[Rfam]
RNA: Nuclear RNase P
RNA sequence: GUGGGCGGAAGCUCAUUGUAGAGGUCACGUGCCGAGUGCUCGUCACUCAACCAAUCACCUCGGGGAAGGUCUGAGACAAGAGCCAAUUGCUGCCCUAGCAGGGCAUCACCUGAUCCGGGUGAGUGAGUGCACAGAAAAUGUGGGCCGUCGUGAGUGUUCUUAACAGGAGAAACCAGGUGGCGCAGCUCUCCAGCGCCGCUGGUGGAUGUGACCUCACUGGCUUGGAAUCACUCAUGGCUGGCGUAUGAGUGCGAUGUAUGAGUUGGAGUACACCUCCAGAACCCAAUUCAGACUACUCUCCCCCCAC
Numbered sequence: 001g002u003g004g005g006c007g008g009a010a011g012c013u014c015a016u017u018g019u020a021g022a023g024g025u026c027a028c029g030u031g032c033c034g035a036g037u038g039c040u041c042g043u044c045a046c047u048c049a050a051c052c053a054a055u056c057a058c059c060u061c062g063g064g065g066a067a068g069g070u071c072u073g074a075g076a077c078a079a080g081a082g083c084c085a086a087u088u089g090c091u092g093c094c095c096u097a098g099c100a101g102g103g104c105a106u107c108a109c110c111u112g113a114u115c116c117g118g119g120u121g122a123g124u125g126a127g128u129g130c131a132c133a134g135a136a137a138a139u140g141u142g143g144g145c146c147g148u149c150g151u152g153a154g155u156g157u158u159c160u161u162a163a164c165a166g167g168a169g170a171a172a173c174c175a176g177g178u179g180g181c182g183c184a185g186c187u188c189u190c191c192a193g194c195g196c197c198g199c200u201g202g203u204g205g206a207u208g209u210g211a212c213c214u215c216a217c218u219g220g221c222u223u224g225g226a227a228u229c230a231c232u233c234a235u236g237g238c239u240g241g242c243g244u245a246u247g248a249g250u251g252c253g254a255u256g257u258a259u260g261a262g263u264u265g266g267a268g269u270a271c272a273c274c275u276c277c278a279g280a281a282c283c284c285a286a287u288u289c290a291g292a293c294u295a296c297u298c299u300c301c302c303c304c305c306a307c
Stems, first nucleotide, its partner, number of pairs: 001307004007301003012262005021061004034048005071291005081239004091105005106122006123235007144221003263279006